[Rfam]
This 107-nucleotide RNA from Brucella melitensis belongs to the Rfam family "Alphaproteobacterial ar14".
The sequence is in the family's curated seed alignment.
Smr14C2 was renamed NfeR1 (Nodule Formation Efficiency RNA) highly expressed in salt stress and during the symbiotic interaction on legume roots.
For this family Rfam cites "A survey of sRNA families in alpha-proteobacteria" (del Val et al., RNA Biol, 2012).
NCBI's taxonomy places the organism under Bacteria, Pseudomonadati, Alphaproteobacteria, Brucellaceae, Brucella melitensis bv. 1.
It is annotated as a small RNA.
RNA sequence: AUACAUCGAGUUCGCCUCCUCCCAGAACUCGAUAAGGAAUACGGCACUCCUCCUCCCAAGCCGUAUUCAAGAUCAGGUCGCGCAUCCUCCUCCCGCGCGGCCUUUUU
Numbered sequence: 001a002u003a004c005a006u007c008g009a010g011u012u013c014g015c016c017u018c019c020u021c022c023c024a025g026a027a028c029u030c031g032a033u034a035a036g037g038a039a040u041a042c043g044g045c046a047c048u049c050c051u052c053c054u055c056c057c058a059a060g061c062c063g064u065a066u067u068c069a070a071g072a073u074c075a076g077g078u079c080g081c082g083c084a085u086c087c088u089c090c091u092c093c094c095g096c097g098c099g100g101c102c103u104u105u106u107u
Base pairs, nucleotide, nucleotide: 007031008030009029011027012026037068038067039066040065041064042063043062044061045060076102077101078100079099080098081097082096083095